RNA: Repression of heat shock gene expression (ROSE) element
Nucleotides: 098
Base pairs, nucleotide, nucleotide: 001021002020003019004018005017006016008015009014032057033056034055035054036053037052038051039050040049058096059095060094061093062092063091065089066088067087068086069085070084071083073082074081075080
Number, partner (000 for none) and nucleotide at each position: 001021u002020c003019g004018g005017g006016u007000g008015c009014c010000g011000a012000a013000a014009g015008g016006a017005c018004c019003c020002g021001g022000c023000g024000g025000a026000a027000c028000g029000a030000g031000a032057g033056g034055g035054c036053g037052u038051c039050g040049g041000c042000u043000c044000u045000g046000c047000c048000c049040c050039c051038g052037g053036c054035g055034c056033u057032u058096c059095u060094c061093a062092u063091g064000c065089u066088c067087a068086g069085a070084u071083u072000g073082c074081u075080c076000a077000g078000a079000a080075g081074a082073g083071g084070a085069u086068u087067u088066g089065g090000a091063u092062a093061u094060g095059a096058g097000g098000a